[Rfam]
RNA sequence: UGAGUAGAUCGGAUGGUCACGUGCAUUUUGCAUGAGGAAAGUCCGAGCUCCAUAGGGCAGGAUGCUGGGUAAUACCCAGUGGGGGUGACCCCAAGGAUAGUGCAACAGAAAUAUACCGCCUAGCAAUAGGUAAGGGUGGAAAGGUGAGGUAAGAGCUCACCAGCAACUAGGCGACUAGUUGGCUCUGUAAACCCCAUCUGGAGCAAGACCAAGUAGGGACAUAAAAAGACAGCUGCUCGUUGUCGUCCCGUAGGUAGGUCGCAAGAACCUAUUGGCAACAAUAGGUCUUAGAUAGAUGACCGUCUAAGACAGAACUCGGCUUACAGAUCUACUCAUUAU
Numbered sequence: 001u002g003a004g005u006a007g008a009u010c011g012g013a014u015g016g017u018c019a020c021g022u023g024c025a026u027u028u029u030g031c032a033u034g035a036g037g038a039a040a041g042u043c044c045g046a047g048c049u050c051c052a053u054a055g056g057g058c059a060g061g062a063u064g065c066u067g068g069g070u071a072a073u074a075c076c077c078a079g080u081g082g083g084g085g086u087g088a089c090c091c092c093a094a095g096g097a098u099a100g101u102g103c104a105a106c107a108g109a110a111a112u113a114u115a116c117c118g119c120c121u122a123g124c125a126a127u128a129g130g131u132a133a134g135g136g137u138g139g140a141a142a143g144g145u146g147a148g149g150u151a152a153g154a155g156c157u158c159a160c161c162a163g164c165a166a167c168u169a170g171g172c173g174a175c176u177a178g179u180u181g182g183c184u185c186u187g188u189a190a191a192c193c194c195c196a197u198c199u200g201g202a203g204c205a206a207g208a209c210c211a212a213g214u215a216g217g218g219a220c221a222u223a224a225a226a227a228g229a230c231a232g233c234u235g236c237u238c239g240u241u242g243u244c245g246u247c248c249c250g251u252a253g254g255u256a257g258g259u260c261g262c263a264a265g266a267a268c269c270u271a272u273u274g275g276c277a278a279c280a281a282u283a284g285g286u287c288u289u290a291g292a293u294a295g296a297u298g299a300c301c302g303u304c305u306a307a308g309a310c311a312g313a314a315c316u317c318g319g320c321u322u323a324c325a326g327a328u329c330u331a332c333u334c335a336u337u338a339u
Stems, first nucleotide, its partner, number of pairs: 001335010011324001012304007020034006039322003043319005048203004055238004060199005065079005080094001081092004095194002100192002102188003116135002118131005143161006163183001164181007207260004217248004229243005267286008
RNA: Bacterial RNase P class A
Organism: Sporanaerobacter acetigenes